Shown here is a 35-nucleotide RNA, a member of the family "L31-Firmicutes ribosomal protein leader". Clan: Ribosomal Protein L31 Leader clan. The family's RNA type in Rfam is cis-regulatory leader. Rfam's curators put it in the seed alignment.

RNA sequence: CUCUGGGUCCGACUGUUGAUCCAGGGCAGAAAGAG
Numbered sequence: 001c002u003c004u005g006g007g008u009c010c011g012a013c014u015g016u017u018g019a020u021c022c023a024g025g026g027c028a029g030a031a032a033g034a035g
Stems, first nucleotide, its partner, number of pairs: 001026008